The record is a 167-nucleotide sequence from Enterococcus pallens, which matches "Listeria sRNA rli28" in Rfam. A reference for the family is Michels et al. (1991), "Muscarinic cholinergic control of vasopressin secretion from the acute hypothalamoneurohypophysial explant", Neuroendocrinology. Taxonomically the source falls in Enterococcus pallens (Bacteria, Bacillota, Bacilli, Enterococcaceae).
[Rfam]
RNA sequence: UAAAGGAGGUGAUGCUGACUUAGCAGUGUUUAUGGUGGUGGCUGAGCUUCUCAGAAAGGAGUGAUGCUUUAUGUUCAUCCUAGGAAAGGAAUAUCCGCCAUGACUGUGUAUCAGGCGUUGACAUUGGCAAUUGCCUUUGCCACCUUGAUCAUCACCAUUGAUCGACA
Numbered sequence: 001u002a003a004a005g006g007a008g009g010u011g012a013u014g015c016u017g018a019c020u021u022a023g024c025a026g027u028g029u030u031u032a033u034g035g036u037g038g039u040g041g042c043u044g045a046g047c048u049u050c051u052c053a054g055a056a057a058g059g060a061g062u063g064a065u066g067c068u069u070u071a072u073g074u075u076c077a078u079c080c081u082a083g084g085a086a087a088g089g090a091a092u093a094u095c096c097g098c099c100a101u102g103a104c105u106g107u108g109u110a111u112c113a114g115g116c117g118u119u120g121a122c123a124u125u126g127g128c129a130a131u132u133g134c135c136u137u138u139g140c141c142a143c144c145u146u147g148a149u150c151a152u153c154a155c156c157a158u159u160g161a162u163c164g165a166c167a
Stems, first nucleotide, its partner, number of pairs: 038143005058081002061078004102122001104120001106118004148162004
Rfam classes the family as a small RNA.